[Rfam]
The family of this 157-nucleotide sequence from Polaromonas sp. OV174 is "FMN riboswitch aptamer (RFN element)". The organism belongs to Polaromonas, within Bacteria. A search with the family's covariance model found it, with a score of 108 bits.
RNA sequence: CAGCGUUCUCAGGGCGGGGUGAAACUCCCCACCGGCGGUGUUUGCAGGCAACUGCAUCAGCCCGCGAGCGCCCGCUCUUCUUCAUCGAAGAGCGGGGUCAGCAGAUUCGGUUCAACUCCGAAGCCGACGGUCAUAGUCCGGAUGAAAGAGAGCGCGA
Numbered sequence: 001c002a003g004c005g006u007u008c009u010c011a012g013g014g015c016g017g018g019g020u021g022a023a024a025c026u027c028c029c030c031a032c033c034g035g036c037g038g039u040g041u042u043u044g045c046a047g048g049c050a051a052c053u054g055c056a057u058c059a060g061c062c063c064g065c066g067a068g069c070g071c072c073c074g075c076u077c078u079u080c081u082u083c084a085u086c087g088a089a090g091a092g093c094g095g096g097g098u099c100a101g102c103a104g105a106u107u108c109g110g111u112u113c114a115a116c117u118c119c120g121a122a123g124c125c126g127a128c129g130g131u132c133a134u135a136g137u138c139c140g141g142a143u144g145a146a147a148g149a150g151a152g153c154g155c156g157a
Stems, first nucleotide, its partner, number of pairs: 003155008017029003031137002033126002035065004060124002068102002106122005128140003